[Rfam]
RNA sequence: AACGAAAAACGCAGGCUCCGUUCGGAGCCAAUGCAAACGAAACAGCAACGAAACAGCUUUGUUCCCCUAUCGCCCGCAAGAGCGAUAGGGGAACAAAGCUGUUUCGUUUGCUGCGGUAAAUAGGUAUUGUUGAUCUAUUGGUAACACAUGAACCCCAUCCUAAUAAAUCGGUUACAAAGAAAGCUGGGCUAUACUUUCCAGC
Numbered sequence: 001a002a003c004g005a006a007a008a009a010c011g012c013a014g015g016c017u018c019c020g021u022u023c024g025g026a027g028c029c030a031a032u033g034c035a036a037a038c039g040a041a042a043c044a045g046c047a048a049c050g051a052a053a054c055a056g057c058u059u060u061g062u063u064c065c066c067c068u069a070u071c072g073c074c075c076g077c078a079a080g081a082g083c084g085a086u087a088g089g090g091g092a093a094c095a096a097a098g099c100u101g102u103u104u105c106g107u108u109u110g111c112u113g114c115g116g117u118a119a120a121u122a123g124g125u126a127u128u129g130u131u132g133a134u135c136u137a138u139u140g141g142u143a144a145c146a147c148a149u150g151a152a153c154c155c156c157a158u159c160c161u162a163a164u165a166a167a168u169c170g171g172u173u174a175c176a177a178a179g180a181a182a183g184c185u186g187g188g189c190u191a192u193a194c195u196u197u198c199c200a201g202c
Base pairs, nucleotide, nucleotide: 014029015028016027017026018025019024033111034110035109036108037107038106039105040104041103042102043101044100045099057098065091066090067089069086070085071084072083073082168187169186170185171184172183173182

Rfam assigns this 202-nucleotide RNA from Candidatus Symbiopectobacterium sp. PLON1 to the family "rncO".
The match comes from Rfam's covariance-model search (104 bits).
The source organism's lineage runs through Bacteria, Pseudomonadota, Gammaproteobacteria, ant, tsetse, mealybug, aphid, etc. endosymbionts and Symbiopectobacterium.
Rfam describes the family as follows. This family represents a bacterial regulatory element (rncO) found in the rnc leader sequence. The rnc operon is negatively auto-regulated by transcript stability. rnc, the first gene in the operon codes for RNase III which cleaves the long rncO stem II leading to transcript degradation and a reduction in translation.